Rfam assigns this 107-nucleotide RNA from Solanum commersonii to the family "Small nucleolar RNA Z103". Gene Ontology terms of the family: nucleolus and RNA processing. It is annotated as a C/D-box small nucleolar RNA. NCBI's taxonomy places the organism under Eukaryota, Embryophyta, Gunneridae, asterids, Solanum.
RNA sequence: AUGGAAGUGAUGAAUUUUUCCCCAGAUGAUCGAAGUUGAAAUUACUGAGCGCUUUUUAUGUAUUUUCUCCUUAUAGGGGAAAAUUCAAGCCAGAUAUUCUGAUCCGU
Numbered sequence: 001a002u003g004g005a006a007g008u009g010a011u012g013a014a015u016u017u018u019u020c021c022c023c024a025g026a027u028g029a030u031c032g033a034a035g036u037u038g039a040a041a042u043u044a045c046u047g048a049g050c051g052c053u054u055u056u057u058a059u060g061u062a063u064u065u066u067c068u069c070c071u072u073a074u075a076g077g078g079g080a081a082a083a084u085u086c087a088a089g090c091c092a093g094a095u096a097u098u099c100u101g102a103u104c105c106g107u
Stems, first nucleotide, its partner, number of pairs: 001107005